Rfam assigns this 121-nucleotide RNA sequence from Peribacillus muralis to the family "PyrR binding site". It is annotated as a cis-regulatory element. On this family, see Bonner et al., Nucleic Acids Res 2001: "Molecular recognition of pyr mRNA by the Bacillus subtilis attenuation regulatory protein PyrR". The match comes from Rfam's covariance-model search (67 bits). This family represents the PyrR binding site and terminator structure. This RNA structure is found upstream of a variety of genes involved in pyrimidine biosynthesis and transport. The alignment also includes a portion of the antiterminator structure.
RNA sequence: AACCCUUUUAAAGACAGUCCAGAGAGGCUGGCAAAGGGGAGUCAAUCGGGAAGUGUGUGCCUAUCUAUGGGCUGGCACGCCCGUGAAACCCUCUUUGUCUAGACAAAGAGGGUUUUUGCCG
Number, nucleotide and partner (000 for none) at each position: 001a000002a000003c039004c038005c037006u036007u035008u034009u000010a000011a000012a000013g000014a000015c030016a029017g028018u027019c026020c000021a000022g000023a000024g000025a000026g019027g018028c017029u016030g015031g000032c000033a000034a008035a007036g006037g005038g004039g003040a000041g000042u000043c000044a000045a000046u000047c000048g000049g082050g081051a000052a000053g078054u077055g076056u075057g000058u000059g072060c071061c070062u069063a000064u000065c000066u000067a000068u000069g062070g061071g060072c059073u000074g000075g056076c055077a054078c053079g000080c000081c050082c049083g000084u000085g116086a115087a114088a113089c112090c111091c110092u109093c108094u107095u106096u105097g104098u103099c000100u000101a000102g000103a098104c097105a096106a095107a094108g093109a092110g091111g090112g089113u088114u087115u086116u085117u000118g000119c000120c000121g000